Small nucleolar RNA SNORA32: a 120-nucleotide RNA from Loxodonta africana. It scores 112 bits against the family's covariance model. The organism belongs to Loxodonta, within Eukaryota. The family's consensus secondary structure was predicted with RNAfold. Rfam's curators write: ACA32 is a member of the H/ACA class of snoRNA that guide the sites of modification of uridines to pseudouridines. The family's RNA type in Rfam is H/ACA-box small nucleolar RNA. Rfam 15.1 lists 615 matches to the family in 234 species.
[Rfam]
RNA sequence: AGGUCAUUACCAAGGCUUUUAGAAUGCAGUUUGAUUUGCUGUGGACUUGACGGUAAUAAAAACCUCCCACUAGGUUUUCUCUUUGCGACCUUGCUAGCAGUCAACCAGCUGGGAACAUUU
Numbered sequence: 001a002g003g004u005c006a007u008u009a010c011c012a013a014g015g016c017u018u019u020u021a022g023a024a025u026g027c028a029g030u031u032u033g034a035u036u037u038g039c040u041g042u043g044g045a046c047u048u049g050a051c052g053g054u055a056a057u058a059a060a061a062a063c064c065u066c067c068c069a070c071u072a073g074g075u076u077u078u079c080u081c082u083u084u085g086c087g088a089c090c091u092u093g094c095u096a097g098c099a100g101u102c103a104a105c106c107a108g109c110u111g112g113g114a115a116c117a118u119u120u
Base pairs, nucleotide, nucleotide: 003051004050005049006048010044011043012042026039027038028037029036066113067112068111069110073106074105075104076103084099085098086097
Dot-bracket structure: ..((((...(((.............((((......))))..)))...))))..............((((...((((.......(((..........)))...))))...)))).......